[Rfam]
RNA sequence: UUUCUGAUUGCGGGAGAGCGCAGAAAUUCUGUCACCGAAGGUAUAAGUUAUAAAGUACGCUAACUCUAUAAUGAACAUCUCAGGUAAAUGGACCGUAAUCAUAUG
Dot-bracket structure: .....((((((((......((((.....)))).(((((..(.....((((((..............))))))......))).))).......)))))))).....

The record is a 105-nucleotide RNA from Enterococcus hermanniensis, which matches "Glycine riboswitch aptamer" in Rfam. Lineage of the source: Bacteria > Bacillota > Bacilli > Enterococcaceae > Enterococcus.